The record is an 80-nucleotide sequence from Molothrus ater, which matches "mir-16 microRNA precursor family" in Rfam. Rfam links the family to the GO terms miRNA-mediated post-transcriptional gene silencing and RISC complex. For this family Rfam cites "Frequent deletions and down-regulation of micro- RNA genes miR15 and miR16 at 13q14 in chronic lymphocytic leukemia" (Calin et al., Proc Natl Acad Sci U S A, 2002). It scores 72 bits against the family's covariance model.
RNA sequence: GCUCCGCCCUAGCAGCACGUAAAUAUUGGAGUGUCAGAGAAAGCUUCAACCCCAAUAUUCUUGUGCUGCUUCAGCGUGGC
Numbered sequence: 001g002c003u004c005c006g007c008c009c010u011a012g013c014a015g016c017a018c019g020u021a022a023a024u025a026u027u028g029g030a031g032u033g034u035c036a037g038a039g040a041a042a043g044c045u046u047c048a049a050c051c052c053c054a055a056u057a058u059u060c061u062u063g064u065g066c067u068g069c070u071u072c073a074g075c076g077u078g079g080c
Base pairs, nucleotide, nucleotide: 001080002079003078005076006075007074010073011070012069013068014067015066016065017064018063022059023058024057025056026055027054028053029052